A member of the RNA family "Glycine riboswitch aptamer" from Tessaracoccus aquimaris, 88 nucleotides long. Lineage of the source: Bacteria > Bacillati > Actinomycetes > Propionibacteriales > Tessaracoccus. Pairs were carried over by alignment from the consensus structure.
RNA sequence: CGUGUCGACACGGGAGAACCGGCCUUGCGCCGGUGCCGAAGGAGCAACCGCCCCGGAAACUCUCAGGCCCCAGGACCGUGCCGACGCU
Number, nucleotide and partner (000 for none) at each position: 001c000002g000003u000004g000005u000006c083007g082008a000009c080010a079011c078012g077013g076014g000015a000016g000017a000018a000019c033020c032021g031022g030023c000024c000025u000026u000027g000028c000029g000030c022031c021032g020033g019034u000035g068036c067037c066038g064039a063040a000041g000042g062043a061044g060045c000046a000047a000048c056049c055050g000051c000052c000053c000054c000055g049056g048057a000058a000059a000060c044061u043062c042063u039064c038065a000066g037067g036068c035069c000070c000071c000072a000073g000074g000075a000076c013077c012078g011079u010080g009081c000082c007083g006084a000085c000086g000087c000088u000